[Rfam]
RNA sequence: CUGCAUCCCUGAAACCCCCCGGUAGCCUGGUAUGUAGGUGCUGGGACAAGAAGAGAUGCUAGAGCCAAGCUGUGAGAGCUCCAAUGUGUAGGCAGUGUGUUUCCCUGCACUAUUUCACCUCUCGCACAGCU
Numbered sequence: 001c002u003g004c005a006u007c008c009c010u011g012a013a014a015c016c017c018c019c020c021g022g023u024a025g026c027c028u029g030g031u032a033u034g035u036a037g038g039u040g041c042u043g044g045g046a047c048a049a050g051a052a053g054a055g056a057u058g059c060u061a062g063a064g065c066c067a068a069g070c071u072g073u074g075a076g077a078g079c080u081c082c083a084a085u086g087u088g089u090a091g092g093c094a095g096u097g098u099g100u101u102u103c104c105c106u107g108c109a110c111u112a113u114u115u116c117a118c119c120u121c122u123c124g125c126a127c128a129g130c131u
Base pairs, nucleotide, nucleotide: 003059004058005057006056010050018045019044020043021042022041024039026037063131064130065129071124072123074121075120086110087109088108089107090106091105094102
A member of the RNA family "Small nucleolar RNA SNORA14" from Xenopus laevis, 131 nucleotides long. Its family is annotated with nucleolus and RNA processing in the Gene Ontology. About the family: ACA14 is a member of the H/ACA class of snoRNA that guide the sites of modification of uridines to pseudouridines. The family has 18 seed sequences and 848 matches in Rfam 15.1. The source organism's lineage runs through Eukaryota, Chordata, Dipnotetrapodomorpha, Pipidae and Xenopus.